[Rfam]
RNA: Actino-pnp RNA
Organism: Prauserella marina
RNA sequence: GCCGGUCCUCGGUAGUGGCUCCCGGGAUGAGAAGUCCCGAGAGCUUCGAUCGAUGACCGGC
Numbered sequence: 001g002c003c004g005g006u007c008c009u010c011g012g013u014a015g016u017g018g019c020u021c022c023c024g025g026g027a028u029g030a031g032a033a034g035u036c037c038c039g040a041g042a043g044c045u046u047c048g049a050u051c052g053a054u055g056a057c058c059g060g061c
Stems, first nucleotide, its partner, number of pairs: 001061007009053005017045005023039006
Dot-bracket structure: (((((((.(((((...(((((.((((((.....)))))).)))))...))))).)))))))